[Rfam]
A member of the RNA family "mir-8364 microRNA precursor family" from Pristionchus pacificus, 61 nucleotides long.
RNA sequence: UCUUCAUUCUACGCGCUCUCUCACUUCUCGGAUCGGCGAGAGAGUAUGCGAAAUGAAGAGA
Numbered sequence: 001u002c003u004u005c006a007u008u009c010u011a012c013g014c015g016c017u018c019u020c021u022c023a024c025u026u027c028u029c030g031g032a033u034c035g036g037c038g039a040g041a042g043a044g045u046a047u048g049c050g051a052a053a054u055g056a057a058g059a060g061a
Stems, first nucleotide, its partner, number of pairs: 001059007010050001012048002015045003019041004
Lineage of the source: Eukaryota > Metazoa > Eumetazoa > Rhabditina > Pristionchus. It scores 70 bits against the family's covariance model. Gene Ontology terms of the family: RISC complex and miRNA-mediated post-transcriptional gene silencing. Rfam 15.1 lists 3,320 matches to the family in 2 species.